[Rfam]
RNA sequence: GGCCGAUGACUUGAAUUAAUUGUCCGUACCAUCUGAAAGCCUAGCAAUUGCUGGUCUACUGAUGCAUUUUAUUUCUGAGGCCU
Numbered sequence: 001g002g003c004c005g006a007u008g009a010c011u012u013g014a015a016u017u018a019a020u021u022g023u024c025c026g027u028a029c030c031a032u033c034u035g036a037a038a039g040c041c042u043a044g045c046a047a048u049u050g051c052u053g054g055u056c057u058a059c060u061g062a063u064g065c066a067u068u069u070u071a072u073u074u075c076u077g078a079g080g081c082c083u
Stems, first nucleotide, its partner, number of pairs: 001082004
Annotation: Rfam assigns this 83-nucleotide RNA from Paspalum vaginatum to the family "small nucleolar RNA snoR117". The family's consensus secondary structure was predicted with RNAalifold. It scores 47 bits against the family's covariance model. Gene Ontology terms of the family: RNA processing and nucleolus. A reference for the family is Chen and Wu (2009), "Mining small RNA sequencing data: a new approach to identify small nucleolar RNAs in Arabidopsis", Nucleic Acids Res. Taxonomically the source falls in Paspalum (Eukaryota, Viridiplantae, Streptophytina, commelinids).